[Rfam]
Nucleotides: 076
Base pairs, nucleotide, nucleotide: 002071003070004069005068006067007066008065009064010063011062017034018033019032020031021030022029037059038058039057040056
Number, partner (000 for none) and nucleotide at each position: 001000u002071c003070c004069c005068g006067c007066c008065u009064c010063g011062c012000g013000a014000a015000a016000a017034g018033u019032c020031g021030c022029u023000g024000u025000u026000u027000g028000u029022g030021g031020c032019g033018g034017c035000c036000u037059g038058u039057c040056c041000u042000g043000g044000c045000u046000c047000u048000c049000g050000c051000c052000g053000g054000a055000u056040g057039g058038a059037c060000u061000a062011g063010c064009g065008a066007g067006g068005c069004g070003g071002g072000u073000u074000g075000g076000u